[Rfam]
RNA sequence: UGCUCGAUAAUUAUGGCCAAUAACAUUUGGCAAUAUACGCUAUUCUGAGAGAAGAAAAAUCUGAGAGCU
Number, nucleotide and partner (000 for none) at each position: 001u000002g068003c067004u066005c065006g000007a000008u000009a000010a000011u000012u000013a000014u000015g000016g000017c000018c000019a000020a000021u000022a000023a000024c000025a000026u000027u000028u000029g000030g000031c000032a000033a000034u000035a000036u000037a000038c000039g000040c000041u000042a000043u000044u000045c000046u000047g000048a000049g000050a000051g000052a000053a000054g000055a000056a000057a000058a000059a000060u000061c000062u000063g000064a000065g005066a004067g003068c002069u000
The record is a 69-nucleotide sequence from Asparagus officinalis, which matches "Small nucleolar RNA U54" in Rfam. Its Rfam clan is "U54 clan". By type it is a C/D-box small nucleolar RNA. Rfam links the family to the GO terms nucleolus and RNA processing. A search with the family's covariance model found it, with a score of 52 bits. On this family, see Chen et al., Nucleic Acids Res 2003: "The high diversity of snoRNAs in plants: identification and comparative study of 120 snoRNA genes from Oryza sativa". U54 is a C/D box small nucleolar RNA, which acts as a methylation guide for 18S ribosomal RNA in plants. The family's consensus secondary structure was predicted with PFOLD.